[Rfam]
Phenylalanine leader peptide: a 125-nucleotide RNA from Providencia stuartii. Lineage of the source: Bacteria > Pseudomonadati > Enterobacterales > Providencia > Providencia stuartii. Gene Ontology term of the family: cellular amino acid metabolic process. Rfam classes the family as a cis-regulatory leader. The literature on the family includes a 1978 paper in Proc Natl Acad Sci U S A by Zurawski et al., "Nucleotide sequence of the leader region of the phenylalanine operon of Escherichia coli".
RNA sequence: AAUUAUAUGCAAAUCGUCGCUUUUCGUUUCUUCUUUUACUUUAGCACCUGAGUUUCGGGGGCUUGCGCGCGUAAGAAAAGAAACGAAAAGUUACGCUAAAGCCUCCGUCAGGAGGCUUUUUUGUU
Numbered sequence: 001a002a003u004u005a006u007a008u009g010c011a012a013a014u015c016g017u018c019g020c021u022u023u024u025c026g027u028u029u030c031u032u033c034u035u036u037u038a039c040u041u042u043a044g045c046a047c048c049u050g051a052g053u054u055u056c057g058g059g060g061g062c063u064u065g066c067g068c069g070c071g072u073a074a075g076a077a078a079a080g081a082a083a084c085g086a087a088a089a090g091u092u093a094c095g096c097u098a099a100a101g102c103c104u105c106c107g108u109c110a111g112g113a114g115g116c117u118u119u120u121u122u123g124u125u
Stems, first nucleotide, its partner, number of pairs: 016094002019091001021089012034076001036074004042057001058068001060066001098119009